About this RNA: Rfam assigns this 141-nucleotide RNA sequence from Physcomitrium patens to the family "MIR904 microRNA precursor family". Taxonomically the source falls in Physcomitrium (Eukaryota, Viridiplantae, Embryophyta, Bryophytina). The family has 2 seed sequences and 4 matches in Rfam 15.1. Rfam links the family to the GO terms miRNA-mediated post-transcriptional gene silencing and RISC complex.
RNA sequence: UUUGUGAUGCUAAUACGGUCUUGUCAAUGUUUAGGGGCAAAGGUGCAACUAUGCAACAUCCCUGGUGCGAGCUCUUGAUCGCGUAAGUGUUGCUAGUGCCCUCCACCCCUAAAUGUUGGCAAGACCUAAUUGGCGCACAAC
Numbered sequence: 001u002u003u004g005u006g007a008u009g010c011u012a013a014u015a016c017g018g019u020c021u022u023g024u025c026a027a028u029g030u031u032u033a034g035g036g037g038c039a040a041a042g043g044u045g046c047a048a049c050u051a052u053g054c055a056a057c058a059u060c061c062c063u064g065g066u067g068c069g070a071g072c073u074c075u076u077g078a079u080c081g082c083g084u085a086a087g088u089g090u091u092g093c094u095a096g097u098g099c100c101c102u103c104c105a106c107c108c109c110u111a112a113a114u115g116u117u118g119g120c121a122a123g124a125c126c127u128a129a130u131u132g133g134c135g136c137a138c139a140a141c
Base pairs, nucleotide, nucleotide: 002140003139004138005137006136008135009134010133011132012131013130014129017126018125019124020123021122022121023120024119025118026117027116028115029114030113031112032111033110034109035108036107037106041102042101043100045099046098048097049096050095051094053093054092055091056090065084066083067082068081069080070079072077